[Rfam]
RNA sequence: GGGUGCUUGAGGCUGUUUGCCUGGAGCAUUCGUGAAAGGCAGACAGAGAAAAGCCCCAGUUAACAUUCGGCGUCUUGCAGGACGCUUAACAUUAAACUGAGGCCAAUCCAAUGCUUGAACAACUGAAGAUUAGCCUCUUAACCGUAAGAAAUCAACUUACAGGAGGCUGUAAUG
Numbered sequence: 001g002g003g004u005g006c007u008u009g010a011g012g013c014u015g016u017u018u019g020c021c022u023g024g025a026g027c028a029u030u031c032g033u034g035a036a037a038g039g040c041a042g043a044c045a046g047a048g049a050a051a052a053g054c055c056c057c058a059g060u061u062a063a064c065a066u067u068c069g070g071c072g073u074c075u076u077g078c079a080g081g082a083c084g085c086u087u088a089a090c091a092u093u094a095a096a097c098u099g100a101g102g103c104c105a106a107u108c109c110a111a112u113g114c115u116u117g118a119a120c121a122a123c124u125g126a127a128g129a130u131u132a133g134c135c136u137c138u139u140a141a142c143c144g145u146a147a148g149a150a151a152u153c154a155a156c157u158u159a160c161a162g163g164a165g166g167c168u169g170u171a172a173u174g
Stems, first nucleotide, its partner, number of pairs: 001057003005054004013046010026033002058098004062093002066089002099137005106130003113123001142165001145162001

The record is a 174-nucleotide sequence from Salmonella enterica, which matches "sok antitoxin (CssrC)" in Rfam. The sequence is in the family's curated seed alignment. The family has 91 seed sequences and 305 matches in Rfam 15.1. For this family Rfam cites "An antisense RNA controls synthesis of an SOS-induced toxin evolved from an antitoxin" (Kawano et al., Mol Microbiol, 2007). It is annotated as an antitoxin RNA. Rfam describes the family as follows. Also identified in Shigella as CssrC. The organism belongs to Salmonella enterica subsp. enterica, within Bacteria.